[Rfam]
The record is a 62-nucleotide RNA sequence, which matches "Fluoride riboswitch aptamer (crcB RNA motif)" in Rfam.
The base pairs follow the family's consensus structure, which is taken from published work.
Its family is annotated with positive regulation of gene expression and response to fluoride in the Gene Ontology.
Rfam's curators put it in the seed alignment.
RNA sequence: UCUGCUUCGGGUGAUGGCGUCCACCCCGAAACGCCCGCGUGGCUGAUGACGCCUUUUCGCAU
Numbered sequence: 001u002c003u004g005c006u007u008c009g010g011g012u013g014a015u016g017g018c019g020u021c022c023a024c025c026c027c028g029a030a031a032c033g034c035c036c037g038c039g040u041g042g043c044u045g046a047u048g049a050c051g052c053c054u055u056u057u058c059g060c061a062u
Stems, first nucleotide, its partner, number of pairs: 010025004016053006033043003